FMN riboswitch aptamer (RFN element): a 146-nucleotide RNA from Sneathiella litorea.
It scores 120 bits against the family's covariance model.
The family's consensus secondary structure is taken from published work.
The organism belongs to Sneathiella, within Bacteria.
RNA sequence: GAAUGUUCUCAGGGCAGGGUGAAAGUCCCUACCGGCGGUAAAGAGCAGGUUUCUGUUCAAGCCCGCGAGCGCCCGUUUCGACGGGGACAGCAGAUUCGGUGUAAAUCCGAAGCCGACGGUAAUAGUCCGGAUGGAAGAGAACAGGA
Dot-bracket structure: ...(((((((......(((.......))).[[((((((......................[[))))..((...................))...(((((.......)))))]])).(((.....]]))).......)))))))...